The family of this 75-nucleotide sequence from Nicotiana tabacum is "mir-16 microRNA precursor family". The organism belongs to Nicotiana, within Eukaryota. The match comes from Rfam's covariance-model search (40 bits).
RNA sequence: GAAAAGAAAAAAGAGCACAAAAAUACUGACACUUGCUUCGGCAGUGUCAGUAUUUUUGUGCUCUUUUUUCUUUUC
Numbered sequence: 001g002a003a004a005a006g007a008a009a010a011a012a013g014a015g016c017a018c019a020a021a022a023a024u025a026c027u028g029a030c031a032c033u034u035g036c037u038u039c040g041g042c043a044g045u046g047u048c049a050g051u052a053u054u055u056u057u058g059u060g061c062u063c064u065u066u067u068u069u070c071u072u073u074u075c
Base pairs, nucleotide, nucleotide: 001075002074003073005071006070007069010068011065012064013063014062015061016060017059018058020055022054023053024052025051026050027049028048029047030046031045032044033043